[Rfam]
RNA sequence: CUUCACGGAGCCCAGCCACAGGGGGUCCGCCCCGCCGCGGUCCUGGCCGUAGGUGGCCAGCAGCGCCUGCGCCUC
Numbered sequence: 001c002u003u004c005a006c007g008g009a010g011c012c013c014a015g016c017c018a019c020a021g022g023g024g025g026u027c028c029g030c031c032c033c034g035c036c037g038c039g040g041u042c043c044u045g046g047c048c049g050u051a052g053g054u055g056g057c058c059a060g061c062a063g064c065g066c067c068u069g070c071g072c073c074u075c
Stems, first nucleotide, its partner, number of pairs: 014026001016024002031071001033069001038065002043060003047056003
RNA: ASpks TB sRNA